Description: Shown here is a 76-nucleotide RNA sequence from Crocodylus porosus, a member of the family "Mammalian CPEB3 ribozyme". A search with the family's covariance model found it, with a score of 37 bits.
RNA sequence: AUUUUAGAUCAGUAGGCCUUAGCAGAAGCACUCACAGUGUGGCUGUACCAGGUUCAACCAAUCUGUGAAUUCUGCU
Numbered sequence: 001a002u003u004u005u006a007g008a009u010c011a012g013u014a015g016g017c018c019u020u021a022g023c024a025g026a027a028g029c030a031c032u033c034a035c036a037g038u039g040u041g042g043c044u045g046u047a048c049c050a051g052g053u054u055c056a057a058c059c060a061a062u063c064u065g066u067g068a069a070u071u072c073u074g075c076u
Stems, first nucleotide, its partner, number of pairs: 013045002016043003021076007028040003049065006
Dot-bracket structure: ............[[.[[[..((((((((((.......)))]]]]]...((((((.....))))))....)))))))